[Rfam]
RNA sequence: AGACGGGGACCCGCACAAGCGGUGGAGCAUGUGGUUUAAUUCGACGAUACACGAAGAACCUUACCUGGACUUGACAUAGUAAGAACUUUCUAGAGAUAGAUUGGUGUCUGCUUGCAGAAACUUAUAUACAGGUGCUGCACGGCUGUCGUCAGCUCGUGUCGUGAGAUGUUGGGUUAAGUCCCGCAACGAGCGCAACCCUCGUCAUUAGUUGCUAACAGUUCGGCUGAGAACUCUAAUGAGACUGCCUACGUAAGUAGGAGGAAGGUGAGGACGACGUCAAGUCAUCAUGGCCCUUACGUCCAGGGCUACACACGUGCUACAAUGGGGUAUACAAAGAGCCGCAAUACAGUGAUGUGGAGCAAAUCUCAAAAAUAUCUCCCAGUUCGGAUUGUAGUCUGCAACUCGACUACAUGAAGUUGGAAUCGCUAGUAAUCGUAGAUCAGCUAUGCUACGGUGAAUACGUUCCCGGGUCUUGUACUCACCGCCCGUCACACCAUGGGAGUUGAACUCAUUCGAAGCGGGGAUGCUAAAAUAGCUACCUUCCACAGUGGAUUUAGCGACUGGGGUGAAGUCGUAACAAGG
Numbered sequence: 001a002g003a004c005g006g007g008g009a010c011c012c013g014c015a016c017a018a019g020c021g022g023u024g025g026a027g028c029a030u031g032u033g034g035u036u037u038a039a040u041u042c043g044a045c046g047a048u049a050c051a052c053g054a055a056g057a058a059c060c061u062u063a064c065c066u067g068g069a070c071u072u073g074a075c076a077u078a079g080u081a082a083g084a085a086c087u088u089u090c091u092a093g094a095g096a097u098a099g100a101u102u103g104g105u106g107u108c109u110g111c112u113u114g115c116a117g118a119a120a121c122u123u124a125u126a127u128a129c130a131g132g133u134g135c136u137g138c139a140c141g142g143c144u145g146u147c148g149u150c151a152g153c154u155c156g157u158g159u160c161g162u163g164a165g166a167u168g169u170u171g172g173g174u175u176a177a178g179u180c181c182c183g184c185a186a187c188g189a190g191c192g193c194a195a196c197c198c199u200c201g202u203c204a205u206u207a208g209u210u211g212c213u214a215a216c217a218g219u220u221c222g223g224c225u226g227a228g229a230a231c232u233c234u235a236a237u238g239a240g241a242c243u244g245c246c247u248a249c250g251u252a253a254g255u256a257g258g259a260g261g262a263a264g265g266u267g268a269g270g271a272c273g274a275c276g277u278c279a280a281g282u283c284a285u286c287a288u289g290g291c292c293c294u295u296a297c298g299u300c301c302a303g304g305g306c307u308a309c310a311c312a313c314g315u316g317c318u319a320c321a322a323u324g325g326g327g328u329a330u331a332c333a334a335a336g337a338g339c340c341g342c343a344a345u346a347c348a349g350u351g352a353u354g355u356g357g358a359g360c361a362a363a364u365c366u367c368a369a370a371a372a373u374a375u376c377u378c379c380c381a382g383u384u385c386g387g388a389u390u391g392u393a394g395u396c397u398g399c400a401a402c403u404c405g406a407c408u409a410c411a412u413g414a415a416g417u418u419g420g421a422a423u424c425g426c427u428a429g430u431a432a433u434c435g436u437a438g439a440u441c442a443g444c445u446a447u448g449c450u451a452c453g454g455u456g457a458a459u460a461c462g463u464u465c466c467c468g469g470g471u472c473u474u475g476u477a478c479u480c481a482c483c484g485c486c487c488g489u490c491a492c493a494c495c496a497u498g499g500g501a502g503u504u505g506a507a508c509u510c511a512u513u514c515g516a517a518g519c520g521g522g523g524a525u526g527c528u529a530a531a532a533u534a535g536c537u538a539c540c541u542u543c544c545a546c547a548g549u550g551g552a553u554u555u556a557g558c559g560a561c562u563g564g565g566g567u568g569a570a571g572u573c574g575u576a577a578c579a580a581g582g
Stems, first nucleotide, its partner, number of pairs: 001479002003476003007473007015463002019426005024320001026318008034309002040055004064304007077128002079125005086103001089100004105120001107118004131293002134291004141286001142282003145278001147276002152191006158167003170183004197270004202239007212228002216226003242261002245258005324378007336367003341360002346355003385416001390411007432455007482581001484578001487574002492568004497563003502558006509551005518543001520541003526536003

Source information
The record is a 582-nucleotide part of an RNA from Arcobacter caeni, which matches "Bacterial small subunit ribosomal RNA" in Rfam. Clan: SSU clan. Its family is annotated with ribosome and structural constituent of ribosome in the Gene Ontology.